[Rfam]
Shown here is a 217-nucleotide sequence from Paenibacillus sp. J45TS6, a member of the family "c-di-AMP riboswitch aptamer (ydaO/yuaA leader)".
The pairing is the family consensus, mapped onto this sequence.
NCBI's taxonomy places the organism under Bacteria, Bacillati, Bacillota, Bacilli, Paenibacillus.
A search with the family's covariance model found it, with a score of 63 bits.
RNA sequence: GUGUUAUUCUCGCUGAAUUCUUCAAAAACCGAAGAGCGGGGGAACCAAUAAGUUGGUCUUAUAAGCUUGUAGCUUUAUACUUUAGACCAUCAUAUUUGAUUUCAUUUUGAGUCUUGGGGUGAAGGAAAAGGCACUAGCCAUGAGCUAAUGACCUGAUCCAGGGCGACUCUUGCGUCCCAAUCCGACAGCUAACUCCGUAAGCGUAUAAAGAGGUAAA
Numbered sequence: 001g002u003g004u005u006a007u008u009c010u011c012g013c014u015g016a017a018u019u020c021u022u023c024a025a026a027a028a029c030c031g032a033a034g035a036g037c038g039g040g041g042g043a044a045c046c047a048a049u050a051a052g053u054u055g056g057u058c059u060u061a062u063a064a065g066c067u068u069g070u071a072g073c074u075u076u077a078u079a080c081u082u083u084a085g086a087c088c089a090u091c092a093u094a095u096u097u098g099a100u101u102u103c104a105u106u107u108u109g110a111g112u113c114u115u116g117g118g119g120u121g122a123a124g125g126a127a128a129a130g131g132c133a134c135u136a137g138c139c140a141u142g143a144g145c146u147a148a149u150g151a152c153c154u155g156a157u158c159c160a161g162g163g164c165g166a167c168u169c170u171u172g173c174g175u176c177c178c179a180a181u182c183c184g185a186c187a188g189c190u191a192a193c194u195c196c197g198u199a200a201g202c203g204u205a206u207a208a209a210g211a212g213g214u215a216a217a
Stems, first nucleotide, its partner, number of pairs: 011203004018035002036198006046116002117183003125158002161177004